[Rfam]
RNA: Small nucleolar RNA snR32
Organism: Candida albicans
RNA sequence: AACAUCAAUCGCAGAUCCACCCUUUAUAUAAAGAUUAACUUUGCUUUUUAUUCAAUGGUAAGUUGAUUUGAAGGUUCACAAGUGGAUAUAAGCGUAGAUAGACCUUAAGUGGAGCACGUUUCUGGGCGCCUGGUGUUGACAUACAAUAAUGGAACACUGGGAAUCAGUUGUGACUACAGUU
Number, nucleotide and partner (000 for none) at each position: 001a000002a000003c000004a000005u000006c000007a000008a000009u000010c094011g093012c092013a000014g000015a087016u086017c085018c084019a083020c082021c000022c000023u000024u000025u000026a000027u000028a000029u050030a049031a048032a047033g000034a000035u000036u043037a042038a000039c000040u000041u000042u037043g036044c000045u000046u000047u032048u031049u030050a029051u072052u071053c070054a069055a068056u000057g000058g000059u000060a000061a000062g000063u000064u000065g000066a000067u000068u055069u054070g053071a052072a051073g000074g000075u000076u000077c000078a000079c000080a000081a000082g020083u019084g018085g017086a016087u015088a000089u000090a000091a000092g012093c011094g010095u000096a000097g000098a000099u000100a000101g000102a000103c000104c000105u000106u000107a000108a000109g000110u000111g000112g000113a000114g174115c000116a171117c170118g169119u000120u000121u000122c000123u000124g000125g000126g000127c000128g000129c161130c160131u000132g000133g157134u156135g155136u154137u153138g000139a000140c152141a150142u149143a000144c000145a000146a000147u000148a000149a142150u141151g000152g140153a137154a136155c135156a134157c133158u000159g000160g130161g129162a000163a000164u000165c000166a000167g000168u000169u118170g117171u116172g000173a000174c114175u000176a000177c000178a000179g000180u000181u000